[Rfam]
RNA sequence: GAAAGUUCGCGCGACUGGCGGAAGUGGAGUUCACCACACGGAGCGCGAGCCACGGAUCUGCCGACCGCCUGGGCUUGUUGC
Numbered sequence: 001g002a003a004a005g006u007u008c009g010c011g012c013g014a015c016u017g018g019c020g021g022a023a024g025u026g027g028a029g030u031u032c033a034c035c036a037c038a039c040g041g042a043g044c045g046c047g048a049g050c051c052a053c054g055g056a057u058c059u060g061c062c063g064a065c066c067g068c069c070u071g072g073g074c075u076u077g078u079u080g081c
Base pairs, nucleotide, nucleotide: 005050006049007048008047009046010045011044012043015040017069018068019067020066021065024037025036026035027034060074061073062072
The record is an 81-nucleotide RNA from Dehalogenimonas formicexedens, which matches "ZMP/ZTP riboswitch aptamer (pfl RNA motif)" in Rfam. The family's consensus secondary structure is taken from published work. Rfam 15.1 lists 3,295 matches to the family in 2,545 species. Rfam links the family to the GO terms one-carbon metabolic process and regulation of purine nucleotide biosynthetic process.